[Rfam]
A member of the RNA family "glmS glucosamine-6-phosphate activated ribozyme aptamer" from Paenibacillus sp. N3.4, 184 nucleotides long.
RNA sequence: AUGGAAUAAAUAGCGCCAGAACUCGCAAGCGAUCGGAAAAGUAGCGAACCUACUACGCAGCGAGUUGACGAGGUGAAGGUGUUCGAAACAUUCGGCGGGGACCUUCCGGCAUCUUGAAUGCCGUUAAGUUGGAAAGCAAAAACGCUUGGGCGACCAGGCUGACAAGUAUCCAACAUCAAUUCAA
Numbered sequence: 001a002u003g004g005a006a007u008a009a010a011u012a013g014c015g016c017c018a019g020a021a022c023u024c025g026c027a028a029g030c031g032a033u034c035g036g037a038a039a040a041g042u043a044g045c046g047a048a049c050c051u052a053c054u055a056c057g058c059a060g061c062g063a064g065u066u067g068a069c070g071a072g073g074u075g076a077a078g079g080u081g082u083u084c085g086a087a088a089c090a091u092u093c094g095g096c097g098g099g100g101a102c103c104u105u106c107c108g109g110c111a112u113c114u115u116g117a118a119u120g121c122c123g124u125u126a127a128g129u130u131g132g133a134a135a136g137c138a139a140a141a142a143c144g145c146u147u148g149g150g151c152g153a154c155c156a157g158g159c160u161g162a163c164a165a166g167u168a169u170c171c172a173a174c175a176u177c178a179a180u181u182c183a184a
Stems, first nucleotide, its partner, number of pairs: 020066007075106005083095004107123006128174006142160001144159006

On this family, see Winkler et al., Nature 2004: "Control of gene expression by a natural metabolite-responsive ribozyme".
NCBI's taxonomy places the organism under Bacteria, Bacillota, Bacilli, Caryophanales, Paenibacillus.